[Rfam]
RNA: Small nucleolar RNA snoR111
RNA sequence: UACAUAACGAGGGACAGUUUGUGUGUCUCUUGGAUUGAGAAGAAUAGCGAGGUAGAGUGAAAAGGCCGAGCCAUCGUUUCGGUCGUCAUUAUUUGGAUUGGCGAUUCGAUUGUUUCUCGUCCACAU
Numbered sequence: 001u002a003c004a005u006a007a008c009g010a011g012g013g014a015c016a017g018u019u020u021g022u023g024u025g026u027c028u029c030u031u032g033g034a035u036u037g038a039g040a041a042g043a044a045u046a047g048c049g050a051g052g053u054a055g056a057g058u059g060a061a062a063a064g065g066c067c068g069a070g071c072c073a074u075c076g077u078u079u080c081g082g083u084c085g086u087c088a089u090u091a092u093u094u095g096g097a098u099u100g101g102c103g104a105u106u107c108g109a110u111u112g113u114u115u116c117u118c119g120u121c122c123a124c125a126u
Stems, first nucleotide, its partner, number of pairs: 006035001008033001011029006064122002067119004073110004082105007089097002